[Rfam]
Shown here is an 89-nucleotide RNA sequence from Rhizobium album, a member of the family "Repression of heat shock gene expression (ROSE) element". This family represents a 5' UTR cis-regulatory element found in heat shock mRNAs and is known as the ROSE (repression of heat shock gene expression) element. The ROSE element is a negative regulator of heat shock gene expression. The secondary structure is thought to be regulated by temperature. This regulation blocks access to the ribosome binding site under normal conditions. During heat shock however, the structure changes freeing the ribosome binding site and allowing expression to occur. The family's RNA type in Rfam is RNA thermoregulator. It scores 51 bits against the family's covariance model. The source organism's lineage runs through Bacteria, Pseudomonadota, Alphaproteobacteria, Rhizobiaceae and Rhizobium. For this family Rfam cites "A mRNA-based thermosensor controls expression of rhizobial heat shock genes" (Nocker et al., Nucleic Acids Res, 2001).

RNA sequence: CCAGCCGCUACAGCAGGGCUUGGCAUUGCUAGGAGCACCGCUGGUGCUUCCGUACCCAUGUUGCUUCAAGGAGGAUAUGGCAAUGGCAA
Numbered sequence: 001c002c003a004g005c006c007g008c009u010a011c012a013g014c015a016g017g018g019c020u021u022g023g024c025a026u027u028g029c030u031a032g033g034a035g036c037a038c039c040g041c042u043g044g045u046g047c048u049u050c051c052g053u054a055c056c057c058a059u060g061u062u063g064c065u066u067c068a069a070g071g072a073g074g075a076u077a078u079g080g081c082a083a084u085g086g087c088a089a
Stems, first nucleotide, its partner, number of pairs: 001023003004019003008016002032050008051085003056080007064073003